[Rfam]
RNA sequence: GUGACAGAAGAGAGGGAGCACACAUGGUUCGUUUCUUGCAUGGCCGCUUAUGCUAGAAAUUCUGUGUGCUUUCUCUCUCUCUGUCAC
Numbered sequence: 001g002u003g004a005c006a007g008a009a010g011a012g013a014g015g016g017a018g019c020a021c022a023c024a025u026g027g028u029u030c031g032u033u034u035c036u037u038g039c040a041u042g043g044c045c046g047c048u049u050a051u052g053c054u055a056g057a058a059a060u061u062c063u064g065u066g067u068g069c070u071u072u073c074u075c076u077c078u079c080u081c082u083g084u085c086a087c
Base pairs, nucleotide, nucleotide: 001087002086003085004084005083006082007081008080010077011076012075013074014073015072016071017070018069019068020067021066023064024063